[Rfam]
RNA sequence: UGGAUUAAUGUGGGUAAGGGAAGUCGGCAAAACGGAUCCGUAACCUCGGGAAAAGGAUUGGCUCCGAGGGCCGGGCCCGGGGGGCUGCGCCUCGACGCCGCAGGCUGUCGGAGGUCUACCCGACGCCGGUUCACCCCGGUAAGGGCGGGCCCCCGCGUGCCUGCUGGCCGACGGGCGCAGAGCGGUCCCUUCACGGGGACCCUCCCCUGGGCGGAGAGCGGUCGUCUCGGAACUGGCGCGGACAAGGGGAAUCCGACUGUUUAAUUAAAACAAAGCAUUGCGAUGGUCCCGACGGAUGUUGACGCAAUGUGAUUUCUGCCCAGUGCUCUGAAUGUCAAAGUGAAGAGAUUCAACCAAGCGCGGGUAAACGGCGGGAGUAACUAUGACUCUCUUAAGGUAGCCAAAUGCCUCGUCAUCUAAUUAGUGACGCGCAUGAAUGGAUUAACGAGAUUCCCACUGUCCCUACCCACUAUCCAGCGAAACCACAGCCAAGGGAACGGGCUUGGAAAA
Numbered sequence: 001u002g003g004a005u006u007a008a009u010g011u012g013g014g015u016a017a018g019g020g021a022a023g024u025c026g027g028c029a030a031a032a033c034g035g036a037u038c039c040g041u042a043a044c045c046u047c048g049g050g051a052a053a054a055g056g057a058u059u060g061g062c063u064c065c066g067a068g069g070g071c072c073g074g075g076c077c078c079g080g081g082g083g084g085c086u087g088c089g090c091c092u093c094g095a096c097g098c099c100g101c102a103g104g105c106u107g108u109c110g111g112a113g114g115u116c117u118a119c120c121c122g123a124c125g126c127c128g129g130u131u132c133a134c135c136c137c138g139g140u141a142a143g144g145g146c147g148g149g150c151c152c153c154c155g156c157g158u159g160c161c162u163g164c165u166g167g168c169c170g171a172c173g174g175g176c177g178c179a180g181a182g183c184g185g186u187c188c189c190u191u192c193a194c195g196g197g198g199a200c201c202c203u204c205c206c207c208u209g210g211g212c213g214g215a216g217a218g219c220g221g222u223c224g225u226c227u228c229g230g231a232a233c234u235g236g237c238g239c240g241g242a243c244a245a246g247g248g249g250a251a252u253c254c255g256a257c258u259g260u261u262u263a264a265u266u267a268a269a270a271c272a273a274a275g276c277a278u279u280g281c282g283a284u285g286g287u288c289c290c291g292a293c294g295g296a297u298g299u300u301g302a303c304g305c306a307a308u309g310u311g312a313u314u315u316c317u318g319c320c321c322a323g324u325g326c327u328c329u330g331a332a333u334g335u336c337a338a339a340g341u342g343a344a345g346a347g348a349u350u351c352a353a354c355c356a357a358g359c360g361c362g363g364g365u366a367a368a369c370g371g372c373g374g375g376a377g378u379a380a381c382u383a384u385g386a387c388u389c390u391c392u393u394a395a396g397g398u399a400g401c402c403a404a405a406u407g408c409c410u411c412g413u414c415a416u417c418u419a420a421u422u423a424g425u426g427a428c429g430c431g432c433a434u435g436a437a438u439g440g441a442u443u444a445a446c447g448a449g450a451u452u453c454c455c456a457c458u459g460u461c462c463c464u465a466c467c468c469a470c471u472a473u474c475c476a477g478c479g480a481a482a483c484c485a486c487a488g489c490c491a492a493g494g495g496a497a498c499g500g501g502c503u504u505g506g507a508a509a510a
Stems, first nucleotide, its partner, number of pairs: 001476004010470007018462003035059005044049001060234002063231006069223005075212009085180002088177004097168004101163005109155003113151005119145003125140005235239001247455007254447002258272003275310008286297004314441003318372003323369002325365004330361001333360003341352004373391006392396001412428005489506005
The record is a 510-nucleotide part of an RNA from Closterium sp. NIES-67, which matches "Eukaryotic large subunit ribosomal RNA" in Rfam. It scores 3012 bits against the family's covariance model. Pairs were carried over by alignment from the consensus structure, which is taken from published work. The family is grouped with related families in Rfam's "LSU clan".